[Rfam]
RNA sequence: AGUUUGCCAUGAUGAAAUUCAUGUUAAGUCUGUGUUUCAGCUGAUCACCCUGAUUAAACAUAUGCUCUGAGCAGACG
Dot-bracket structure: .((((((...............................................................)))))).
Small nucleolar RNA SNORD126: a 77-nucleotide RNA from Callorhinus ursinus. The organism belongs to Callorhinus, within Eukaryota. Pairs were carried over by alignment from the consensus structure, which was predicted with WAR. A search with the family's covariance model found it, with a score of 96 bits. By type it is a C/D-box small nucleolar RNA.